[Rfam]
RNA sequence: GAUGUCUUUAGGGGCGGGGUGUAAUUCCCCACCGACGGUGAUAGUCCGUGAGGAGAUUCUUCUCCUGAUCUGGUGAAAUUCCAGAACCGACAGUGAUAGUCUGGAUGAGAUAGAGACAAU
Numbered sequence: 001g002a003u004g005u006c007u008u009u010a011g012g013g014g015c016g017g018g019g020u021g022u023a024a025u026u027c028c029c030c031a032c033c034g035a036c037g038g039u040g041a042u043a044g045u046c047c048g049u050g051a052g053g054a055g056a057u058u059c060u061u062c063u064c065c066u067g068a069u070c071u072g073g074u075g076a077a078a079u080u081c082c083a084g085a086a087c088c089g090a091c092a093g094u095g096a097u098a099g100u101c102u103g104g105a106u107g108a109g110a111u112a113g114a115g116a117c118a119a120u
Stems, first nucleotide, its partner, number of pairs: 003118008017029003031100002033089002035049004044087002052065003069085005091103003
The record is a 120-nucleotide RNA sequence from Propionigenium maris, which matches "FMN riboswitch aptamer (RFN element)" in Rfam. The source organism's lineage runs through Bacteria, Fusobacteriia, Fusobacteriaceae, Propionigenium and Propionigenium maris. The match comes from Rfam's covariance-model search (111 bits).